[Rfam]
RNA sequence: UUGCUGGUACUGCGAAUCUGAAGGAAGGUGUAGGCAAAUCUCAGAUCUGUCGAACAGGAAUCAUAUCAGGCUAUAAAUAAGGAUAAGGCUGCUAAACAAACUGAAGUCCAAAAGCUAACCGGAAUUAUAUAUAGUAGAUCUUUACUGGAUCUAUUUUACCUGCAAAAUCU
Numbered sequence: 001u002u003g004c005u006g007g008u009a010c011u012g013c014g015a016a017u018c019u020g021a022a023g024g025a026a027g028g029u030g031u032a033g034g035c036a037a038a039u040c041u042c043a044g045a046u047c048u049g050u051c052g053a054a055c056a057g058g059a060a061u062c063a064u065a066u067c068a069g070g071c072u073a074u075a076a077a078u079a080a081g082g083a084u085a086a087g088g089c090u091g092c093u094a095a096a097c098a099a100a101c102u103g104a105a106g107u108c109c110a111a112a113a114g115c116u117a118a119c120c121g122g123a124a125u126u127a128u129a130u131a132u133a134g135u136a137g138a139u140c141u142u143u144a145c146u147g148g149a150u151c152u153a154u155u156u157u158a159c160c161u162g163c164a165a166a167a168u169c170u
Stems, first nucleotide, its partner, number of pairs: 001015004006010001027170002031166001034163002043152002046148002049145001061144001063139002070135003074131002077128004081109004087102002090099001

About this RNA: Group II catalytic intron D1-D4-3: a 170-nucleotide RNA from Herbinix hemicellulosilytica. Group II introns are found in rRNA, tRNA and mRNA of organelles in fungi, plants and protists, and also in mRNA in bacteria. Pairs were carried over by alignment from the consensus structure. A search with the family's covariance model found it, with a score of 74 bits.